RNA sequence: CCAGAUCGGUGACGACGGGAGAGGGCACGCAAGAACACAUCCAUGCUUGUUGCAUAGACGCCUUCCAGCGUGCUCUCUCUCGUUGUCACCCACUG
Number, nucleotide and partner (000 for none) at each position: 001c000002c000003a000004g000005a000006u000007c000008g000009g000010u088011g087012a086013c085014g084015a000016c082017g081018g000019g000020a078021g077022a000023g075024g000025g073026c072027a071028c070029g069030c068031a000032a000033g065034a064035a000036c000037a000038c000039a000040u000041c000042c000043a000044u000045g000046c000047u000048u000049g000050u000051u000052g000053c000054a000055u000056a000057g000058a000059c000060g000061c000062c000063u000064u034065c033066c000067a000068g030069c029070g028071u027072g026073c025074u000075c023076u000077c021078u020079c000080u000081c017082g016083u000084u014085g013086u012087c011088a010089c000090c000091c000092a000093c000094u000095g000

This 95-nucleotide sequence from Ceratodon purpureus belongs to the Rfam family "MIR535 microRNA precursor family". Pairs were carried over by alignment from the consensus structure, which was predicted with RNAalifold. The organism belongs to Ceratodon, within Eukaryota. A search with the family's covariance model found it, with a score of 65 bits.